[Rfam]
RNA sequence: UCUUCAUUUCACACUCUCUCUCGCCUGCUGUGGCGGCGAGAGAGUGUGUGAAAUGAAGAGA
Dot-bracket structure: (((((((..(.(((.((.((((...............)))).)).))).)..)))))))..
Record summary: The family of this 61-nucleotide sequence from Pristionchus pacificus is "mir-8364 microRNA precursor family". The match comes from Rfam's covariance-model search (69 bits). Gene Ontology terms of the family: RISC complex and miRNA-mediated post-transcriptional gene silencing.